RNA sequence: UGCAGUGUUCAGUAUCUGCACCCAGCAGCCUUCCCCUGCUGGGAUGUUCAAAAAGCAGUGCUACAGCAAUGCAGCCUUUGGAAUCGUUGGUUUUCAUUCUGCUGUGUCUGUUAGGGCUGGUGUUUUUGCUGAAACAUCU
Numbered sequence: 001u002g003c004a005g006u007g008u009u010c011a012g013u014a015u016c017u018g019c020a021c022c023c024a025g026c027a028g029c030c031u032u033c034c035c036c037u038g039c040u041g042g043g044a045u046g047u048u049c050a051a052a053a054a055g056c057a058g059u060g061c062u063a064c065a066g067c068a069a070u071g072c073a074g075c076c077u078u079u080g081g082a083a084u085c086g087u088u089g090g091u092u093u094u095c096a097u098u099c100u101g102c103u104g105u106g107u108c109u110g111u112u113a114g115g116g117c118u119g120g121u122g123u124u125u126u127u128g129c130u131g132a133a134a135c136a137u138c139u
Stems, first nucleotide, its partner, number of pairs: 002061003006057002015054001017052001018047003022043002024040005064128003068124003072119003080108002083105002

Notes:
Shown here is a 139-nucleotide RNA from Menura novaehollandiae, a member of the family "Small nucleolar RNA SNORA8". ACA8 is a member of the H/ACA class of snoRNA that guide the sites of modification of uridines to pseudouridines. The family's RNA type in Rfam is H/ACA-box small nucleolar RNA. Clan: SNORA8 clan. The family has 5 seed sequences and 1,490 matches in Rfam 15.1.